ALIL pseudoknot: a 132-nucleotide RNA from Schaalia cardiffensis.
RNA sequence: CGCGUAUUUCGCCCAGGCGGAGCCAGGCCGCCGAUAAGAGACAUCGAUGGGUUCAUCGAUGAGAACCGGGCAGAGUACGGGGUCGAGCUGAUCUGUGAGCAGCUGGUGUCAGCCGGUGUCCAGGUCGCCCCG
Number, nucleotide and partner (000 for none) at each position: 001c000002g000003c000004g000005u000006a000007u000008u000009u000010c000011g000012c000013c000014c000015a000016g032017g031018c030019g029020g028021a000022g000023c000024c000025a000026g000027g000028c020029c019030g018031c017032c016033g000034a000035u000036a000037a000038g000039a000040g000041a000042c000043a000044u000045c000046g000047a000048u000049g000050g000051g000052u000053u000054c000055a000056u000057c000058g000059a000060u000061g000062a000063g000064a000065a000066c000067c000068g000069g000070g000071c000072a000073g000074a000075g000076u000077a000078c132079g131080g130081g129082g128083u000084c000085g000086a000087g000088c000089u127090g126091a000092u124093c123094u122095g121096u000097g000098a000099g000100c000101a000102g000103c000104u000105g000106g000107u000108g000109u000110c000111a000112g000113c000114c000115g000116g000117u000118g000119u000120c000121c095122a094123g093124g092125u000126c090127g089128c082129c081130c080131c079132g078

Rfam classes the family as a cis-regulatory element. The base pairs follow the family's consensus structure, which is taken from published work.